RtT RNA: a 126-nucleotide sequence from Shigella flexneri. Rfam's curators write: This family represents a bacterial cis-regulatory element known as RtT RNA. The exact function of RtT is unknown although it is thought that it may be involved in changing the cellular response in relation to amino acid starvation. Pairs were carried over by alignment from the consensus structure, which is taken from published work. Rfam classes the family as a cis-regulatory element. It scores 47 bits against the family's covariance model. Taxonomically the source falls in Shigella flexneri 2a (Bacteria, Pseudomonadota, Enterobacterales, Enterobacteriaceae).
RNA sequence: UGCUAUCUGCGAUACUCAAAGAUUCGAACCUGCAGCAGGUUUGAGUUGAGCGCAGCGAAACAACGGAGCCGCUCGCGGCGACGGCCCGAAGGGCGAGCGAAGCGAGUCAUCCUGCACGACCCACCA
Dot-bracket structure: ...............(..(.(.(.........(..(...((((...((.......))......((....(((.....))).))...)))).)..).............).).)..)..........
Numbered sequence: 001u002g003c004u005a006u007c008u009g010c011g012a013u014a015c016u017c018a019a020a021g022a023u024u025c026g027a028a029c030c031u032g033c034a035g036c037a038g039g040u041u042u043g044a045g046u047u048g049a050g051c052g053c054a055g056c057g058a059a060a061c062a063a064c065g066g067a068g069c070c071g072c073u074c075g076c077g078g079c080g081a082c083g084g085c086c087c088g089a090a091g092g093g094c095g096a097g098c099g100a101a102g103c104g105a106g107u108c109a110u111c112c113u114g115c116a117c118g119a120c121c122c123a124c125c126a
Stems, first nucleotide, its partner, number of pairs: 016116001019113001021111001023109001033095001036092001040090004047057002064083002070080003